[Rfam]
The record is a 139-nucleotide RNA from Diatraea saccharalis, which matches "Small nucleolar RNA psi28S-1192" in Rfam. Rfam classes the family as an H/ACA-box small nucleolar RNA. Rfam's curators write: psi28S-1192 is a member of the H/ACA class of snoRNA. This family is responsible for guiding the modification of uridine 1192 to pseudouridine in Drosophila 28S rRNA. The source organism's lineage runs through Eukaryota, Allotriocarida, Endopterygota, Neolepidoptera and Diatraea. Rfam 15.1 lists 81 matches to the family in 36 species.

RNA sequence: UUUAUGUCUGUUCUAAUAUCAGAGAGUGUAAUAUUAACUCUUUGGUUUCGCUUUCAGACAAAAUUAAUUCUUUGAAUUUAUCCUAAUGUGACUAUCUGCUAUAGUUGAUGUCGCAUUGGCAUUUCUAAGAUACACAGAA
Numbered sequence: 001u002u003u004a005u006g007u008c009u010g011u012u013c014u015a016a017u018a019u020c021a022g023a024g025a026g027u028g029u030a031a032u033a034u035u036a037a038c039u040c041u042u043u044g045g046u047u048u049c050g051c052u053u054u055c056a057g058a059c060a061a062a063a064u065u066a067a068u069u070c071u072u073u074g075a076a077u078u079u080a081u082c083c084u085a086a087u088g089u090g091a092c093u094a095u096c097u098g099c100u101a102u103a104g105u106u107g108a109u110g111u112c113g114c115a116u117u118g119g120c121a122u123u124u125c126u127a128a129g130a131u132a133c134a135c136a137g138a139a
Base pairs, nucleotide, nucleotide: 005060006059007058008057009056010055019045020044021043022042023041024040025039026038027036028035074133076131077130078129083119084118085117086116087115088114